[Rfam]
RNA sequence: AAGACAACAACUGAAUCUGAUCGUAUAUCCUUGGGAAUUGGCCCGAGAGUCUCUACCCGGCGACCGGAAUCGCUGGACUACGAACGAAAGUGAAUCUAGG
Numbered sequence: 001a002a003g004a005c006a007a008c009a010a011c012u013g014a015a016u017c018u019g020a021u022c023g024u025a026u027a028u029c030c031u032u033g034g035g036a037a038u039u040g041g042c043c044c045g046a047g048a049g050u051c052u053c054u055a056c057c058c059g060g061c062g063a064c065c066g067g068a069a070u071c072g073c074u075g076g077a078c079u080a081c082g083a084a085c086g087a088a089a090g091u092g093a094a095u096c097u098a099g100g
Stems, first nucleotide, its partner, number of pairs: 018086002021083005030047006057076007
The record is a 100-nucleotide RNA sequence from Tumebacillus algifaecis, which matches "Purine riboswitch aptamer" in Rfam.
Pairs were carried over by alignment from the consensus structure, which is taken from published work.
Its family is annotated with purine nucleobase biosynthetic process in the Gene Ontology.
The organism belongs to Tumebacillus, within Bacteria.